The record is a 365-nucleotide RNA from Flintibacter hominis, which matches "transfer-messenger RNA" in Rfam. The organism belongs to Flintibacter, within Bacteria. Pairs were carried over by alignment from the consensus structure, which is taken from published work. Rfam describes the family as follows. Bacterial tmRNA, also known as 10Sa RNA or SsrA, is named for its dual tRNA and mRNA-like properties. Its role is to liberate the mRNA from a stalled ribosome. To accomplish this part of the tmRNA is used as a reading frame that ends in a translation stop signal. The broken mRNA is replaced in the ribosome by the tmRNA and translation of the tmRNA leads to addition of a proteolysis tag to the incomplete protein enabling recognition by a protease. It is annotated as a non-coding RNA gene.
[Rfam]
RNA sequence: GGGGGCGUACCGGUUUCGACGGGGACGCUGCAGUGGGAAUAGCGGGCGGUGGCGCCUGGCCACCUUAAAACGGGCAUUCUUUAUAAAUUAAAGAACGACAACUACGCUUACGCUGCCUAAUUAAAGGCAGCCGUCUGACCGGGAAGGGCCACGAGCCCGGAUCAGGCGUCGCUUAGUGGCGGACGUGAGCCGGCAAAGCUUUGAGCCGGCCAUGCAUCAUGAAGCUCACCUGACCUUCAGGCGUGACGGCUUGCCUGAAGCGAAGGGAACGGGGAGAGCAAGACUCCUGUAAUAACCGUCUGCGCCCGGAGAAGUUCCCAUGAAUGUGUUUUCGGACGGGAGUUCAACUCUCCCCGCCUCCACCA
Numbered sequence: 001g002g003g004g005g006c007g008u009a010c011c012g013g014u015u016u017c018g019a020c021g022g023g024g025a026c027g028c029u030g031c032a033g034u035g036g037g038a039a040u041a042g043c044g045g046g047c048g049g050u051g052g053c054g055c056c057u058g059g060c061c062a063c064c065u066u067a068a069a070a071c072g073g074g075c076a077u078u079c080u081u082u083a084u085a086a087a088u089u090a091a092a093g094a095a096c097g098a099c100a101a102c103u104a105c106g107c108u109u110a111c112g113c114u115g116c117c118u119a120a121u122u123a124a125a126g127g128c129a130g131c132c133g134u135c136u137g138a139c140c141g142g143g144a145a146g147g148g149c150c151a152c153g154a155g156c157c158c159g160g161a162u163c164a165g166g167c168g169u170c171g172c173u174u175a176g177u178g179g180c181g182g183a184c185g186u187g188a189g190c191c192g193g194c195a196a197a198g199c200u201u202u203g204a205g206c207c208g209g210c211c212a213u214g215c216a217u218c219a220u221g222a223a224g225c226u227c228a229c230c231u232g233a234c235c236u237u238c239a240g241g242c243g244u245g246a247c248g249g250c251u252u253g254c255c256u257g258a259a260g261c262g263a264a265g266g267g268a269a270c271g272g273g274g275a276g277a278g279c280a281a282g283a284c285u286c287c288u289g290u291a292a293u294a295a296c297c298g299u300c301u302g303c304g305c306c307c308g309g310a311g312a313a314g315u316u317c318c319c320a321u322g323a324a325u326g327u328g329u330u331u332u333c334g335g336a337c338g339g340g341a342g343u344u345c346a347a348c349u350c351u352c353c354c355c356g357c358c359u360c361c362a363c364c365a
Base pairs, nucleotide, nucleotide: 001361002360003359004358005357006356007355020334021333022332023331024330025329026328027327028326033321034320035319036318037317038316039315040314043308044307045306046305047304048064049063050062051061052060054075055074056073057072058071112131113130114129115128116127132168133167134166135165136164137163139160140159141158142157148180149179150178151177152176187211189210190209191208192207193206197226198225199224200223201222202221229266230265231264235260236259237258238257240255241254242253245300246299247298248297251295252294338354339353340352341351342350
The match comes from Rfam's covariance-model search (136 bits).